A member of the RNA family "mir-9223 microRNA precursor family" from Myotis myotis, 75 nucleotides long.
The match comes from Rfam's covariance-model search (76 bits).
Rfam links the family to the GO terms RISC complex and miRNA-mediated post-transcriptional gene silencing.
Lineage of the source: Eukaryota > Eumetazoa > Eutheria > Chiroptera > Myotis.
Rfam 15.1 lists 14,641 matches to the family in 28 species.
[Rfam]
RNA sequence: GGCUAUUCUAGAGUGACGCACCCCGGAAUCGUGCUCCCUCCUCUCCGGUUCUGGGUGUGUCACCCAAGAACCGCA
Numbered sequence: 001g002g003c004u005a006u007u008c009u010a011g012a013g014u015g016a017c018g019c020a021c022c023c024c025g026g027a028a029u030c031g032u033g034c035u036c037c038c039u040c041c042u043c044u045c046c047g048g049u050u051c052u053g054g055g056u057g058u059g060u061c062a063c064c065c066a067a068g069a070a071c072c073g074c075a
Base pairs, nucleotide, nucleotide: 002074003073006070007069008068009067011065013063014062015061016060017059019057020056021055022054023053025052026051027050028049029048030047031046033044